[Rfam]
The family of this 73-nucleotide RNA from Danionella cerebrum is "mir-551 microRNA precursor family". Pairs were carried over by alignment from the consensus structure, which was predicted with RNAalifold. A reference for the family is Murchison et al. (2008), "Conservation of small RNA pathways in platypus", Genome Res.

RNA sequence: UUGCCUCAGAAAUCAAGUGUGGGUGUGGCCUGUAAUCACUAUAAUGGCGACCCAUCCUUGGUUUCUGAGGCUU
Numbered sequence: 001u002u003g004c005c006u007c008a009g010a011a012a013u014c015a016a017g018u019g020u021g022g023g024u025g026u027g028g029c030c031u032g033u034a035a036u037c038a039c040u041a042u043a044a045u046g047g048c049g050a051c052c053c054a055u056c057c058u059u060g061g062u063u064u065c066u067g068a069g070g071c072u073u
Stems, first nucleotide, its partner, number of pairs: 003071005009065006016058002021053004028048003